MIR535 microRNA precursor family: a 96-nucleotide RNA sequence from Cocos nucifera. A reference for the family is Zeng et al. (2010), "Conservation and divergence of microRNAs and their functions in Euphorbiaceous plants", Nucleic Acids Res. A search with the family's covariance model found it, with a score of 76 bits. The family has 20 seed sequences and 544 matches in Rfam 15.1. The base pairs follow the family's consensus structure, which was predicted with RNAalifold.
RNA sequence: GUGGUUGGCUGACAACGAGAGAGAGCACGCCGGUCGGCUGUCAUGCAAGGUGCCAUGGCUGUGUACUAGCGUGCUAUUUCUCGUUGUCAACCCAGU
Numbered sequence: 001g002u003g004g005u006u007g008g009c010u011g012a013c014a015a016c017g018a019g020a021g022a023g024a025g026c027a028c029g030c031c032g033g034u035c036g037g038c039u040g041u042c043a044u045g046c047a048a049g050g051u052g053c054c055a056u057g058g059c060u061g062u063g064u065a066c067u068a069g070c071g072u073g074c075u076a077u078u079u080c081u082c083g084u085u086g087u088c089a090a091c092c093c094a095g096u
Stems, first nucleotide, its partner, number of pairs: 010089005016083002020079002025074006032067003